[Rfam]
RNA sequence: CCUAGGACCCGUACUAUCAAGUGUUGCUAAACCCCGUCAGGACUGGAAGGUAGCAGCGGUAAGCGAUUUUUUUGGUGAGUACGCAAGUCUUAGGUUGA
Dot-bracket structure: ...(((((.(((((..(((((.((((((.....((((....(((....)))....))))..))))))...)))))...)))))...))))).......
Numbered sequence: 001c002c003u004a005g006g007a008c009c010c011g012u013a014c015u016a017u018c019a020a021g022u023g024u025u026g027c028u029a030a031a032c033c034c035c036g037u038c039a040g041g042a043c044u045g046g047a048a049g050g051u052a053g054c055a056g057c058g059g060u061a062a063g064c065g066a067u068u069u070u071u072u073u074g075g076u077g078a079g080u081a082c083g084c085a086a087g088u089c090u091u092a093g094g095u096u097g098a
Stems, first nucleotide, its partner, number of pairs: 004091005010083005017075005023067006034059004042051003
A member of the RNA family "Bacterial small signal recognition particle RNA" from Borreliella bavariensis, 98 nucleotides long. The signal recognition particle (SRP) is a universally conserved ribonucleoprotein involved in the co-translational targeting of proteins to membranes. Lineage of the source: Bacteria > Spirochaetota > Borreliaceae > Borreliella > Borreliella bavariensis. It is annotated as a non-coding RNA gene.